[Rfam]
RNA: RAGATH-18 RNA
RNA sequence: CCUUUGGAGUGCUAAAUCAAAAGAAAGUAGUUGCAAAAUGAAAAUCUGGCACGGCGAAGAAGGAA
Numbered sequence: 001c002c003u004u005u006g007g008a009g010u011g012c013u014a015a016a017u018c019a020a021a022a023g024a025a026a027g028u029a030g031u032u033g034c035a036a037a038a039u040g041a042a043a044a045u046c047u048g049g050c051a052c053g054g055c056g057a058a059g060a061a062g063g064a065a
Stems, first nucleotide, its partner, number of pairs: 001063005009052005022047003030039003